[Rfam]
RNA sequence: AAAAAAUAUGGGCAAACCAAGAGAAAUCUUGGGACGCAAAAUCAGGAAUCUAAGGGAAACUAUGAUCGUCCGAUUGCAGGA
Numbered sequence: 001a002a003a004a005a006a007u008a009u010g011g012g013c014a015a016a017c018c019a020a021g022a023g024a025a026a027u028c029u030u031g032g033g034a035c036g037c038a039a040a041a042u043c044a045g046g047a048a049u050c051u052a053a054g055g056g057a058a059a060c061u062a063u064g065a066u067c068g069u070c071c072g073a074u075u076g077c078a079g080g081a
Stems, first nucleotide, its partner, number of pairs: 012037002017032006040075004045071003048066003055060001
RNA: c-di-GMP-I riboswitch aptamer
Organism: Clostridiales bacterium COT073_COT-073